The family of this 93-nucleotide RNA sequence from [Anoxybacillus] calidus is "c-di-GMP-I riboswitch aptamer".
The source organism's lineage runs through Bacteria, Bacillati, Bacillota, Anoxybacillaceae and Paranoxybacillus.
Rfam's curators write: GEMM was predicted in a large-scale screen for bacterial structured RNA regulatory elements. Genes associated with GEMM are involved in a diverse array of functions, including chemotaxis regulation, signal transduction, secretion and chitin.
The match comes from Rfam's covariance-model search (74 bits).
[Rfam]
RNA sequence: UACAUAAAUCGGCAAACUACUCGAAAGGGUAGGACGCAAAACUAAAGGGGCUAAACCUAUUUUUAUAAAUAGGUAUGCCAGCCAGUUGCUCUU
Numbered sequence: 001u002a003c004a005u006a007a008a009u010c011g012g013c014a015a016a017c018u019a020c021u022c023g024a025a026a027g028g029g030u031a032g033g034a035c036g037c038a039a040a041a042c043u044a045a046a047g048g049g050g051c052u053a054a055a056c057c058u059a060u061u062u063u064u065a066u067a068a069a070u071a072g073g074u075a076u077g078c079c080a081g082c083c084a085g086u087u088g089c090u091c092u093u
Stems, first nucleotide, its partner, number of pairs: 012037002017032006040087004047083002049079003056073007